[Rfam]
Record summary:
Rfam assigns this 86-nucleotide sequence from Paracoccus isoporae to the family "Singlet oxygen resistance RNA X". Rfam 15.1 lists 528 matches to the family in 356 species. It is annotated as a small RNA. From the family's description: SorX (RSs2461)like SorY is a singlet oxygen induced sRNA that counteracts oxidative stress by targeting mRNA for a transporter in Rhodobacter. It also has an impact on resistance against organic hydroperoxides. It targets SD sequence of potA mRNA via an aSD sequence. The aSD sequence and some neighbouring nucleotides are identical to the one of SorY (targets takP mRNA). The match comes from Rfam's covariance-model search (52 bits).
RNA sequence: ACUCUGCGAAGGCGAUGAUUGAGGCAACUCUCAUAACCUUCACCUCCCUGUUGGACUUGGGCCGGGCCUUGUGCCCGGCUUUUUUU
Dot-bracket structure: .......(((((........................)))))..................((((((((.....))))))))......